Rfam assigns this 298-nucleotide RNA from Arachis hypogaea to the family "Plant signal recognition particle RNA".
[Rfam]
RNA sequence: GCCGAGUUGGGUAACGCUAGCUUGUAACCCAAGUGGGGGCUUUAGGGUGAUGGAACAUGGCUCUGGCUAUGCUUGGUUGGGCUGGUGGUUGCACCAUGUUGGCUUGCCCACUCCAAGUUGAAAGUUGGGUCAUGGUACUUGGGCGAAGGCUCAAGUGUCCUGGCUCCUAAACUAGAGGGCACCGCGUUAGGCUGGUUUCACAGAGCAACGAUCACCUCUGGCUUCUGACAGUGGAGGGAUUACAAGCUGCUGCACCAUUGGCCCACAAACCAUCACUUUUUUAUAUGGAUUUAUUCAG
Numbered sequence: 001g002c003c004g005a006g007u008u009g010g011g012u013a014a015c016g017c018u019a020g021c022u023u024g025u026a027a028c029c030c031a032a033g034u035g036g037g038g039g040c041u042u043u044a045g046g047g048u049g050a051u052g053g054a055a056c057a058u059g060g061c062u063c064u065g066g067c068u069a070u071g072c073u074u075g076g077u078u079g080g081g082c083u084g085g086u087g088g089u090u091g092c093a094c095c096a097u098g099u100u101g102g103c104u105u106g107c108c109c110a111c112u113c114c115a116a117g118u119u120g121a122a123a124g125u126u127g128g129g130u131c132a133u134g135g136u137a138c139u140u141g142g143g144c145g146a147a148g149g150c151u152c153a154a155g156u157g158u159c160c161u162g163g164c165u166c167c168u169a170a171a172c173u174a175g176a177g178g179g180c181a182c183c184g185c186g187u188u189a190g191g192c193u194g195g196u197u198u199c200a201c202a203g204a205g206c207a208a209c210g211a212u213c214a215c216c217u218c219u220g221g222c223u224u225c226u227g228a229c230a231g232u233g234g235a236g237g238g239a240u241u242a243c244a245a246g247c248u249g250c251u252g253c254a255c256c257a258u259u260g261g262c263c264c265a266c267a268a269a270c271c272a273u274c275a276c277u278u279u280u281u282u283a284u285a286u287g288g289a290u291u292u293a294u295u296c297a298g
Stems, first nucleotide, its partner, number of pairs: 001040003004023007028037003051297003057291001058289001065281001069279001071277001073275001075274003079264009090254002100249007108238002111236005117229004122224004127166006134159011173220006185210003192203003
Dot-bracket structure: ((((((((((......)))))))....(((....))))))..........(((...((......(...(.(.(.(((.(((((((((..((........(((((((.((.(((((.((((.((((.((((((.(((((((((((....))))))))))).))))))......((((((......(((....(((......)))....)))....)))))))))).))))..)))))))....)))))))...)).))))))))).......)))).).).).......).)...))).
The match comes from Rfam's covariance-model search (198 bits). Taxonomically the source falls in Arachis (Eukaryota, Streptophytina, Embryophyta, Fabaceae).